Shown here is a 163-nucleotide RNA from Mesorhabditis belari, a member of the family "U1 spliceosomal RNA". NCBI's taxonomy places the organism under Eukaryota, Nematoda, Rhabditoidea, Rhabditidae, Mesorhabditis. The literature on the family includes a 2009 paper in Nature by Pomeranz Krummel et al., "Crystal structure of human spliceosomal U1 snRNP at 5.5 A resolution". By type it is a spliceosomal small nuclear RNA. Clan: U1 clan.

[Rfam]
RNA sequence: AAACUUACUUGGCUGGUGUGGCAAUCGCGAUCACCAAGGCGGUUCCUCCAUGGCGAGACUCGGCCAUUGCACUUUGCGGCUGGGUUGACCUGUGUGCCACCCCAAGUCGGGGUUCGGCAACAGCGAAAUUUUUGCGUGAGGGGCCGCGUUCGCGCGGCCCUGA
Number, nucleotide and partner (000 for none) at each position: 001a000002a000003a000004c000005u000006u000007a000008c000009u000010u000011g000012g124013c123014u122015g121016g049017u000018g048019u000020g046021g045022c000023a000024a043025u042026c041027g040028c039029g000030a000031u000032c000033a000034c000035c000036a000037a000038g000039g028040c027041g026042g025043u024044u000045c021046c020047u000048c018049c016050a093051u092052g091053g090054c000055g089056a000057g086058a085059c084060u000061c082062g081063g080064c079065c078066a000067u000068u000069g000070c000071a000072c000073u000074u000075u000076g000077c000078g065079g064080c063081u062082g061083g000084g059085u058086u057087g000088a000089c055090c053091u052092g051093u050094g000095u119096g118097c117098c000099a113100c112101c110102c109103c000104a000105a000106g000107u000108c000109g102110g101111g000112g100113u099114u000115c000116g000117g097118c096119a095120a000121c015122a014123g013124c012125g000126a000127a000128a000129u000130u000131u000132u000133u000134g000135c000136g000137u000138g000139a000140g161141g160142g159143g158144c000145c156146g155147c154148g153149u000150u000151c000152g000153c148154g147155c146156g145157g000158c143159c142160c141161u140162g000163a000